[Rfam]
RNA sequence: UUCUUAUCCAGAGAGGUGGAGGGACUGGCCCUUCGAAGCCUCAGCAACAGACUGUAACAAGUACUGUGCUAAUUCCAGAAGCGUUUUGCUUGAAGAUAAGAA
Numbered sequence: 001u002u003c004u005u006a007u008c009c010a011g012a013g014a015g016g017u018g019g020a021g022g023g024a025c026u027g028g029c030c031c032u033u034c035g036a037a038g039c040c041u042c043a044g045c046a047a048c049a050g051a052c053u054g055u056a057a058c059a060a061g062u063a064c065u066g067u068g069c070u071a072a073u074u075c076c077a078g079a080a081g082c083g084u085u086u087u088g089c090u091u092g093a094a095g096a097u098a099a100g101a102a
Stems, first nucleotide, its partner, number of pairs: 001102008013042005021031003025078004043070004048066002050062001053059001074094001079091005
Background: SAM riboswitch aptamer (S box leader): a 102-nucleotide RNA from Ornithinibacillus halophilus. Rfam links the family to the GO term regulation of gene expression. It scores 87 bits against the family's covariance model. The source organism's lineage runs through Bacteria, Bacillati, Bacillota, Bacillaceae and Ornithinibacillus.